[Rfam]
RNA sequence: AUGAAGAUAGCGAGAGAUUAUCUUCCAUAAAUGGAAGAUAGCCGAAGGGGAAAUACAAAGGCCCGCCAAGCCUUUGUAGAAGCUCUCAGGCGGCAGGAUCGCUAUCGGAUA
Numbered sequence: 001a002u003g004a005a006g007a008u009a010g011c012g013a014g015a016g017a018u019u020a021u022c023u024u025c026c027a028u029a030a031a032u033g034g035a036a037g038a039u040a041g042c043c044g045a046a047g048g049g050g051a052a053a054u055a056c057a058a059a060g061g062c063c064c065g066c067c068a069a070g071c072c073u074u075u076g077u078a079g080a081a082g083c084u085c086u087c088a089g090g091c092g093g094c095a096g097g098a099u100c101g102c103u104a105u106c107g108g109a110u111a
Stems, first nucleotide, its partner, number of pairs: 006106008020039004041091003044087002048085003054078009
The family of this 111-nucleotide RNA from Caldanaerobacter subterraneus is "Glycine riboswitch aptamer". Rfam's curators put it in the seed alignment. The organism belongs to Caldanaerobacter subterraneus subsp. tengcongensis, within Bacteria.